[Rfam]
RNA sequence: UCAUCCCCGCGCAACUGGCGCAACGUGGACAACGCUCCACCAAGGUGAACUGACACCGGGAAGCGCGGGGAUCGGUGCGGCGCACGCUGCACCGAGCCGAGCGCCUGGGCAUCCCGA
Numbered sequence: 001u002c003a004u005c006c007c008c009g010c011g012c013a014a015c016u017g018g019c020g021c022a023a024c025g026u027g028g029a030c031a032a033c034g035c036u037c038c039a040c041c042a043a044g045g046u047g048a049a050c051u052g053a054c055a056c057c058g059g060g061a062a063g064c065g066c067g068g069g070g071a072u073c074g075g076u077g078c079g080g081c082g083c084a085c086g087c088u089g090c091a092c093c094g095a096g097c098c099g100a101g102c103g104c105c106u107g108g109g110c111a112u113c114c115c116g117a
Stems, first nucleotide, its partner, number of pairs: 003072010015060002017105005044056001047054001094112001096110003
Background:
Shown here is a 117-nucleotide RNA sequence from beta proteobacterium AAP99, a member of the family "ZMP/ZTP riboswitch aptamer (pfl RNA motif)". Taxonomically the source falls in Betaproteobacteria (Bacteria, Pseudomonadati, Pseudomonadota). A reference for the family is Tran et al. (2020), "Parallel Discovery Strategies Provide a Basis for Riboswitch Ligand Design", Cell Chem Biol.